[Rfam]
RNA sequence: CCGUACUAGACGGGGAGGUAGCGGUUCCCUGUAACUUGCAGCCCGCUCUAGCAAGGUGGAAUUCCUGCGAAAGGGUCACGCUUGUGAAGCUGUCUUUGAUUGGCGGCGAUGAUAUUUUGGUCUUACGCAACAGAACACUCCGAACCGUGUCAGAUCCUGACGGAAGCAGCACUAAGGAGAACGUUUUGUGUGCCGUAGGGUUGCCUGAAUUGAGUCUGCUGAUCAAGGUAACGUUCGGAAGCGAUGAUUCAAUCAAAGGUGUACGG
Dot-bracket structure: ((((((...((((((((.(...).))))))....(((((...........)))))))......(((..((..(((((.(((((.((((......((((((..(((((......((((.(((((((((((.(((((..((((.....((((....(((....)))....))))...))))....)))))))...))))))...))).))))...))).))..))))))......)))).)))))..)))))..))..))).))))))
This 266-nucleotide RNA from Desulfosporosinus sp. HMP52 belongs to the Rfam family "Bacterial large signal recognition particle RNA". NCBI's taxonomy places the organism under Bacteria, Bacillati, Clostridia, Desulfitobacteriaceae, Desulfosporosinus. A search with the family's covariance model found it, with a score of 181 bits. The literature on the family includes a 2003 paper in Nucleic Acids Res by Rosenblad et al., "SRPDB: Signal Recognition Particle Database". It is annotated as a non-coding RNA gene.